[Rfam]
RNA: tRNA
RNA sequence: GGAGAGGUGGCCGAGUGGCUGAAGGCGCCGGUUUGCUAAACCGUUAUACGUUUUUUAAGACGUAUCGAGGGUUCGAAUCCCUUCCUCUCCG
Numbered sequence: 001g002g003a004g005a006g007g008u009g010g011c012c013g014a015g016u017g018g019c020u021g022a023a024g025g026c027g028c029c030g031g032u033u034u035g036c037u038a039a040a041c042c043g044u045u046a047u048a049c050g051u052u053u054u055u056u057a058a059g060a061c062g063u064a065u066c067g068a069g070g071g072u073u074c075g076a077a078u079c080c081c082u083u084c085c086u087c088u089c090c091g
Base pairs, nucleotide, nucleotide: 001090002089003088004087005086006085007084010026011025012024029043030042031041032040067083068082069081070080071079